[Rfam]
RNA sequence: GUAUGUGGUCACCGCAAGGUUUCUGGUGGCAACACCAGACAAUACACAGGUGGUUCGCCCGUCGCGGGCCACCCCCGGCAACGCCGGACAGCAUCAACCCGCCGGUGUCGACACCGGC
Numbered sequence: 001g002u003a004u005g006u007g008g009u010c011a012c013c014g015c016a017a018g019g020u021u022u023c024u025g026g027u028g029g030c031a032a033c034a035c036c037a038g039a040c041a042a043u044a045c046a047c048a049g050g051u052g053g054u055u056c057g058c059c060c061g062u063c064g065c066g067g068g069c070c071a072c073c074c075c076c077g078g079c080a081a082c083g084c085c086g087g088a089c090a091g092c093a094u095c096a097a098c099c100c101g102c103c104g105g106u107g108u109c110g111a112c113a114c115c116g117g118c
Stems, first nucleotide, its partner, number of pairs: 011020003022039006049073009075087004101118006
RNA: Pseudomon-groES RNA